[Rfam]
RNA sequence: UUGAGGCAUCGUGACUGGCGCUGGAACGCCCGAUGGGCGCAGGUGGGGCACCACCGGGGAGCGAAUCUGCGGAGGCCGUGCGCCUGGGUCGCCGCC
Numbered sequence: 001u002u003g004a005g006g007c008a009u010c011g012u013g014a015c016u017g018g019c020g021c022u023g024g025a026a027c028g029c030c031c032g033a034u035g036g037g038c039g040c041a042g043g044u045g046g047g048g049c050a051c052c053a054c055c056g057g058g059g060a061g062c063g064a065a066u067c068u069g070c071g072g073a074g075g076c077c078g079u080g081c082g083c084c085u086g087g088g089u090c091g092c093c094g095c096c
Base pairs, nucleotide, nucleotide: 003070005068006067009064010063011062012061015058016057017084018083019082020081021080043054044053045052046051074090075089076088077087